[Rfam]
Shown here is a 76-nucleotide RNA from Alligator mississippiensis, a member of the family "Mammalian CPEB3 ribozyme". It scores 56 bits against the family's covariance model. The family's consensus secondary structure is taken from published work.
RNA sequence: AGAGCAGAGCUGAGGCCAUAACAAAAGCACUCAAGGUGCAGCCAUGUCAGAUUCAAACAAAUCUGUGAAUUCUGCU
Numbered sequence: 001a002g003a004g005c006a007g008a009g010c011u012g013a014g015g016c017c018a019u020a021a022c023a024a025a026a027g028c029a030c031u032c033a034a035g036g037u038g039c040a041g042c043c044a045u046g047u048c049a050g051a052u053u054c055a056a057a058c059a060a061a062u063c064u065g066u067g068a069a070u071u072c073u074g075c076u
Stems, first nucleotide, its partner, number of pairs: 014043003020076001022074002025071002027039003048065006